Notes: Rfam assigns this 257-nucleotide sequence from Poecilia formosa to the family "RNase MRP". The family's consensus secondary structure is taken from published work. The organism belongs to Poecilia, within Eukaryota. It is annotated as a ribozyme.
RNA sequence: GGGCAUUCAGAAGGUUUGCAAUCUGGGCUACAAACAGAGAACCUGGUUUCUCACAUACUUGCCCAGGGGAAAGUCCCCGGACCCGUGGCAGAAAGUGCCCUGGUUAAAUCCAGCCUCGGCUUGCGCUCCUCCGUAAGAGCCAAGACGUUCAUCAGAACCGAGCUUGGGGAUUGCUUGUCGAAUUUGUCAGCGUUAAGAGGAAUGCAAACACUAUGCACGAAACGCUUCAACAGAACGGGGCUCAUUCUCCGAAUGCA
Dot-bracket structure: ..((((((.((..((((((..(((((((........(((((......)))))........)))))))....[[.[[[[........((((.....))))((((......))))..(((((..((..(((.......((((......((((....))))...)))).)))...))..)))))......................))))))...........................]]]]]].....)).)))))).